[Rfam]
RNA sequence: UAACACAACUCUGGAGAGACCGGUUCGAUCCGGCGCCGAAGGGGCACGAAGCUGCGGCCAGCCGCACUUCCAAACUCUCAGGCAAAAGGACAGAGGGGCGCCC
Numbered sequence: 001u002a003a004c005a006c007a008a009c010u011c012u013g014g015a016g017a018g019a020c021c022g023g024u025u026c027g028a029u030c031c032g033g034c035g036c037c038g039a040a041g042g043g044g045c046a047c048g049a050a051g052c053u054g055c056g057g058c059c060a061g062c063c064g065c066a067c068u069u070c071c072a073a074a075c076u077c078u079c080a081g082g083c084a085a086a087a088g089g090a091c092a093g094a095g096g097g098g099c100g101c102c103c
Stems, first nucleotide, its partner, number of pairs: 006098001009095005020033004035083003038079002042077003048070004
RNA: Glycine riboswitch aptamer